A member of the RNA family "tRNA", 69 nucleotides long. The family is grouped with related families in Rfam's "tRNA clan". Transfer RNA (tRNA) molecules are approximately 80 nucleotides in length.
RNA sequence: CAGGAGAUAGUUUAUUAAAAAUAGUAGCUUUGGGAGUUGUAGAUGCAAGUUUAAUUCUUGUUUUCCUGA
Numbered sequence: 001c002a003g004g005a006g007a008u009a010g011u012u013u014a015u016u017a018a019a020a021a022u023a024g025u026a027g028c029u030u031u032g033g034g035a036g037u038u039g040u041a042g043a044u045g046c047a048a049g050u051u052u053a054a055u056u057c058u059u060g061u062u063u064u065c066c067u068g069a
Stems, first nucleotide, its partner, number of pairs: 001068007010022004024040005045061005